[Rfam]
RNA sequence: AGGACAGUAUCGUAAUCGAACUGUACCUAAGAGCUUUAUUUUUUUUAUAACAGGAUCUGCCUUGAUCUACAACAGACAGGGACGGAAGA
Dot-bracket structure: ((((((((.((......))))))).)))............................((((((((.(((.....)))))))).)))....

Notes
The record is an 89-nucleotide RNA from Lysinibacillus sp. 2017, which matches "pan motif" in Rfam. The match comes from Rfam's covariance-model search (68 bits). By type it is a cis-regulatory element. The family's consensus secondary structure is taken from published work.